[Rfam]
MIR812 microRNA precursor family: a 209-nucleotide RNA from Oryza meridionalis. A search with the family's covariance model found it, with a score of 122 bits. The family has 22 seed sequences and 57,451 matches in Rfam 15.1.
RNA sequence: AAAAAAACAAACCCUGGGUUUCCGUGUCCAACGUUUGACUGUCCGUCUUAUUUAAAAAAAUUAUGAAAAAAAAUUAAAAAAUAUAAGUCACGCAUAAAGUAUUAAUCAUGUUUUAUCAUCUAACAACAAUGAAAAUACUAAUUAUAAAAAAAUUUCAUAUAAAACAGACAGUCAAAAGUUGGAUACGAAAACCCAGGGUCUAUCUUUUU
Numbered sequence: 001a002a003a004a005a006a007a008c009a010a011a012c013c014c015u016g017g018g019u020u021u022c023c024g025u026g027u028c029c030a031a032c033g034u035u036u037g038a039c040u041g042u043c044c045g046u047c048u049u050a051u052u053u054a055a056a057a058a059a060a061u062u063a064u065g066a067a068a069a070a071a072a073a074u075u076a077a078a079a080a081a082u083a084u085a086a087g088u089c090a091c092g093c094a095u096a097a098a099g100u101a102u103u104a105a106u107c108a109u110g111u112u113u114u115a116u117c118a119u120c121u122a123a124c125a126a127c128a129a130u131g132a133a134a135a136u137a138c139u140a141a142u143u144a145u146a147a148a149a150a151a152a153u154u155u156c157a158u159a160u161a162a163a164a165c166a167g168a169c170a171g172u173c174a175a176a177a178g179u180u181g182g183a184u185a186c187g188a189a190a191a192c193c194c195a196g197g198g199u200c201u202a203u204c205u206u207u208u209u
Stems, first nucleotide, its partner, number of pairs: 027183006034176010045165002048162004